A member of the RNA family "SAH (S-adenosyl-L-homocysteine) riboswitch aptamer" from Allobosea sp. TND4EK4, 109 nucleotides long.
[Rfam]
RNA sequence: CAUUGCGAGGAGCGAAGCGACGAAGCAAUCCCGCAGGGGCAGAUUCUACCUGACCUGGAUUGCUUCGCCACGCUCGCAACGACGGCUCAGGCGACGGCGCUCAAACCCC
Dot-bracket structure: ..((((((............(((((((((((.........................)))))))))))......))))))..............................
Numbered sequence: 001c002a003u004u005g006c007g008a009g010g011a012g013c014g015a016a017g018c019g020a021c022g023a024a025g026c027a028a029u030c031c032c033g034c035a036g037g038g039g040c041a042g043a044u045u046c047u048a049c050c051u052g053a054c055c056u057g058g059a060u061u062g063c064u065u066c067g068c069c070a071c072g073c074u075c076g077c078a079a080c081g082a083c084g085g086c087u088c089a090g091g092c093g094a095c096g097g098c099g100c101u102c103a104a105a106c107c108c109c
Stems, first nucleotide, its partner, number of pairs: 003079006021067011